This 88-nucleotide RNA from Anguilla anguilla belongs to the Rfam family "mir-204 microRNA precursor family". On this family, see Chen et al., Genes Dev 2005: "The developmental miRNA profiles of zebrafish as determined by small RNA cloning".
[Rfam]
RNA sequence: AUGUGACCUGUGGGUUUCCCUUUGUCAUCCUAUGCCUGGGGCAAGCAACAAGGCAGGGACAGCAAAGGGAAGCUCAGCUGUCACCACU
Number, nucleotide and partner (000 for none) at each position: 001a000002u000003g000004u000005g000006a000007c000008c000009u000010g000011u000012g000013g000014g000015u000016u000017u070018c069019c068020c067021u066022u065023u000024g063025u062026c000027a000028u059029c058030c057031u056032a000033u000034g054035c053036c052037u051038g000039g000040g000041g000042c000043a000044a000045g000046c000047a000048a000049c000050a000051a037052g036053g035054c034055a000056g031057g030058g029059a028060c000061a000062g025063c024064a000065a022066a021067g020068g019069g018070a017071a000072g000073c000074u000075c000076a000077g000078c000079u000080g000081u000082c000083a000084c000085c000086a000087c000088u000
Taxonomically the source falls in Anguilla (Eukaryota, Craniata, Euteleostomi, Elopomorpha).